[Rfam]
RNA sequence: UUGUAUUCGACUGUAUUCGGCUGUAUUCACGGCGUGAAACAUGUGAUUACACUGUUUUUAAAACGGAAAGUGAAUCAAUUAACAUAAUAGACUCAU
Numbered sequence: 001u002u003g004u005a006u007u008c009g010a011c012u013g014u015a016u017u018c019g020g021c022u023g024u025a026u027u028c029a030c031g032g033c034g035u036g037a038a039a040c041a042u043g044u045g046a047u048u049a050c051a052c053u054g055u056u057u058u059u060a061a062a063a064c065g066g067a068a069a070g071u072g073a074a075u076c077a078a079u080u081a082a083c084a085u086a087a088u089a090g091a092c093u094c095a096u
Base pairs, nucleotide, nucleotide: 002095003094008090010088012086013085014084016082017081019080020079022077023076025075026074027073028072029071030070033065034064035063036058037057038056039055040054041053